[Rfam]
RNA sequence: CACAAUCCUGGCGAUGGGGUUCGCCUACGAUGCCCGGCUGUAAAGCCGGCGCUGAUGACUCCUACAUCUCG
Numbered sequence: 001c002a003c004a005a006u007c008c009u010g011g012c013g014a015u016g017g018g019g020u021u022c023g024c025c026u027a028c029g030a031u032g033c034c035c036g037g038c039u040g041u042a043a044a045g046c047c048g049g050c051g052c053u054g055a056u057g058a059c060u061c062c063u064a065c066a067u068c069u070c071g
Stems, first nucleotide, its partner, number of pairs: 010025004016062006045052002